Shown here is a 129-nucleotide RNA sequence from Paspalum vaginatum, a member of the family "Small nucleolar RNA snoR111".
RNA sequence: CUAACGCGCGGGGGCACGAACACCUCCCGUGCCGCGCCGCCUUAGCGAGUAGAGGAUAGAUCGACGCGUCAAGAAAUCGUUUCAGUUGCCAUGGCUUCAGUAGGCAGUAUGAUUGUUCCUUGAGCACAG
Numbered sequence: 001c002u003a004a005c006g007c008g009c010g011g012g013g014g015c016a017c018g019a020a021c022a023c024c025u026c027c028c029g030u031g032c033c034g035c036g037c038c039g040c041c042u043u044a045g046c047g048a049g050u051a052g053a054g055g056a057u058a059g060a061u062c063g064a065c066g067c068g069u070c071a072a073g074a075a076a077u078c079g080u081u082u083c084a085g086u087u088g089c090c091a092u093g094g095c096u097u098c099a100g101u102a103g104g105c106a107g108u109a110u111g112a113u114u115g116u117u118c119c120u121u122g123a124g125c126a127c128a129g
Base pairs, nucleotide, nucleotide: 006042008040009039010038011037013033014032015031016030017029018028068125069124071121072120073119076113077112078111079110085108086107087106088105089104090103
By type it is an H/ACA-box small nucleolar RNA. The source organism's lineage runs through Eukaryota, Streptophyta, Spermatophyta, Mesangiospermae and Paspalum. Rfam 15.1 lists 533 matches to the family in 223 species.